[Rfam]
RNA sequence: UAUCCUACUGGGAAUGAAGUUCUCCCAUAUUGAUGAUCAAUAAAACCGCAAUUGAGAAAUUGCUGAUGACUUCUGCUUUUUU
Numbered sequence: 001u002a003u004c005c006u007a008c009u010g011g012g013a014a015u016g017a018a019g020u021u022c023u024c025c026c027a028u029a030u031u032g033a034u035g036a037u038c039a040a041u042a043a044a045a046c047c048g049c050a051a052u053u054g055a056g057a058a059a060u061u062g063c064u065g066a067u068g069a070c071u072u073c074u075g076c077u078u079u080u081u082u
Stems, first nucleotide, its partner, number of pairs: 010026004016073006048063006